[Rfam]
RNA sequence: UCUAUCGCGAGGUAGAAUCUGAAGGAAGUCGGCGGCAAACCUCUGGCCUGAGGACCACGAACUCCAGGUGAGGCUAGCGACAGUUGGAUGAAUCUGCAAACCAAGAUAAAGUCCUUGCUACCAAAGGCUGUCGAGAGUAAAUGGAGCGGGUAGAUGGAACGGGUGGUAGC
Numbered sequence: 001u002c003u004a005u006c007g008c009g010a011g012g013u014a015g016a017a018u019c020u021g022a023a024g025g026a027a028g029u030c031g032g033c034g035g036c037a038a039a040c041c042u043c044u045g046g047c048c049u050g051a052g053g054a055c056c057a058c059g060a061a062c063u064c065c066a067g068g069u070g071a072g073g074c075u076a077g078c079g080a081c082a083g084u085u086g087g088a089u090g091a092a093u094c095u096g097c098a099a100a101c102c103a104a105g106a107u108a109a110a111g112u113c114c115u116u117g118c119u120a121c122c123a124a125a126g127g128c129u130g131u132c133g134a135g136a137g138u139a140a141a142u143g144g145a146g147c148g149g150g151u152a153g154a155u156g157g158a159a160c161g162g163g164u165g166g167u168a169g170c
Stems, first nucleotide, its partner, number of pairs: 001016006032170001035167002040161001042158004046151005062146005073138003078133006086114004092107004
RNA: Group II catalytic intron D1-D4-3